[Rfam]
RNA sequence: CAAGACGAUCCAGCGCGUAUAGCUGCCUUCGCAUAUAUUUAUGGUCAUUAACCUUGAAUAUUUGAGGGAUGACCUCAUUUAAUCUCCAGUAGCAAUUUUGACCUGUUAUGGGAGGAGUUAUGCGCCUGGAUCGUCUUAC
Numbered sequence: 001c002a003a004g005a006c007g008a009u010c011c012a013g014c015g016c017g018u019a020u021a022g023c024u025g026c027c028u029u030c031g032c033a034u035a036u037a038u039u040u041a042u043g044g045u046c047a048u049u050a051a052c053c054u055u056g057a058a059u060a061u062u063u064g065a066g067g068g069a070u071g072a073c074c075u076c077a078u079u080u081a082a083u084c085u086c087c088a089g090u091a092g093c094a095a096u097u098u099u100g101a102c103c104u105g106u107u108a109u110g111g112g113a114g115g116a117g118u119u120a121u122g123c124g125c126c127u128g129g130a131u132c133g134u135c136u137u138a139c
Stems, first nucleotide, its partner, number of pairs: 002137011015125005021119003025045003029041001052067006068079004083115005089109003
Rfam assigns this 139-nucleotide RNA sequence from Shimwellia blattae to the family "Yersinia sRNA 155(RyfD)". A search with the family's covariance model found it, with a score of 119 bits. Taxonomically the source falls in Shimwellia blattae (Bacteria, Pseudomonadota, Gammaproteobacteria, Shimwellia). The base pairs follow the family's consensus structure.